[Rfam]
RNA sequence: UCCGGUGACCGGGCCCCUCUGGCGAAUGCGGCGGCACAUUCGUGAUGUCGGCACCAAUU
Numbered sequence: 001u002c003c004g005g006u007g008a009c010c011g012g013g014c015c016c017c018u019c020u021g022g023c024g025a026a027u028g029c030g031g032c033g034g035c036a037c038a039u040u041c042g043u044g045a046u047g048u049c050g051g052c053a054c055c056a057a058u059u
Stems, first nucleotide, its partner, number of pairs: 006053002009051004022043007